The record is an 89-nucleotide RNA from Oncorhynchus mykiss, which matches "Vault RNA" in Rfam. It scores 66 bits against the family's covariance model. Taxonomically the source falls in Oncorhynchus (Eukaryota, Eumetazoa, Vertebrata, Teleostomi).

[Rfam]
RNA sequence: GCGCUGGUUUAGCUCAGUGGUUACUUCAACCUGUUUUUCACGGUCCGCGGGCUAUGAAGUACGAACCACGGGCGCUGUCCAGCGUUUUU
Numbered sequence: 001g002c003g004c005u006g007g008u009u010u011a012g013c014u015c016a017g018u019g020g021u022u023a024c025u026u027c028a029a030c031c032u033g034u035u036u037u038u039c040a041c042g043g044u045c046c047g048c049g050g051g052c053u054a055u056g057a058a059g060u061a062c063g064a065a066c067c068a069c070g071g072g073c074g075c076u077g078u079c080c081a082g083c084g085u086u087u088u089u
Base pairs, nucleotide, nucleotide: 002084003083004082005081006080007079012073013072014071015070017069018068019067020066025065026064027063